A member of the RNA family "Molybdenum/Tungsten riboswitch aptamer (Moco RNA motif)" from Bowmanella pacifica, 121 nucleotides long. Pairs were carried over by alignment from the consensus structure, which is taken from published work.

RNA sequence: CAACGCCCGGCCUACCGAGCCGUUAUCGCUAAACCGUCGGGCAUGGGAUAACGGCCUAUAGGGUUGAUGGAGAAAUCUGUCAGCCUCCCGUGUUUGGAAAGGUAAGGAAUCAUGUUGGAAG
Dot-bracket structure: ..((......((((((..(((((((((.(....((....))...).))))))))).....(((((((((((....)))))))))))((.......))...)))).))......))......
Numbered sequence: 001c002a003a004c005g006c007c008c009g010g011c012c013u014a015c016c017g018a019g020c021c022g023u024u025a026u027c028g029c030u031a032a033a034c035c036g037u038c039g040g041g042c043a044u045g046g047g048a049u050a051a052c053g054g055c056c057u058a059u060a061g062g063g064u065u066g067a068u069g070g071a072g073a074a075a076u077c078u079g080u081c082a083g084c085c086u087c088c089c090g091u092g093u094u095u096g097g098a099a100a101g102g103u104a105a106g107g108a109a110u111c112a113u114g115u116u117g118g119a120a121g
Stems, first nucleotide, its partner, number of pairs: 003115002011107002013104004019055009029045001034041002061086011087097002